[Rfam]
RNA sequence: UGUAUGCACUUUUGUACGUCGCUUUGGAUAAAAGCAUCUGCUAAAUACAUAAA
Number, nucleotide and partner (000 for none) at each position: 001u000002g000003u000004a000005u000006g000007c000008a000009c000010u000011u000012u000013u043014g041015u040016a039017c000018g000019u000020c000021g035022c034023u033024u032025u031026g000027g000028a000029u000030a000031a025032a024033a023034g022035c021036a000037u000038c000039u016040g015041c014042u000043a013044a000045a000046u000047a000048c000049a000050u000051a000052a000053a000